[Rfam]
RNA: Pseudoknot of upstream pseudoknot domain (UPD) of the 3'UTR
RNA sequence: UCUGUUUUUCGAACAGAUGUAAAUCGAAG
Numbered sequence: 001u002c003u004g005u006u007u008u009u010c011g012a013a014c015a016g017a018u019g020u021a022a023a024u025c026g027a028a029g
Base pairs, nucleotide, nucleotide: 001017002016003015004014005013007029008028009027010026011025012024